This 56-nucleotide RNA sequence from Fimbriiglobus ruber belongs to the Rfam family "Acido-Lenti-1 RNA". The family's RNA type in Rfam is small RNA. Lineage of the source: Bacteria > Pseudomonadati > Gemmatales > Gemmataceae > Fimbriiglobus. The match comes from Rfam's covariance-model search (41 bits).
RNA sequence: CCCAGGGUCCACGCCGGUUCACACCCUGGGCUAUUUUCUGCCGCCCCGUUGGGGCU
Numbered sequence: 001c002c003c004a005g006g007g008u009c010c011a012c013g014c015c016g017g018u019u020c021a022c023a024c025c026c027u028g029g030g031c032u033a034u035u036u037u038c039u040g041c042c043g044c045c046c047c048g049u050u051g052g053g054g055c056u
Base pairs, nucleotide, nucleotide: 001030002029003028004027005026006025007024008023043055044054045053046052047051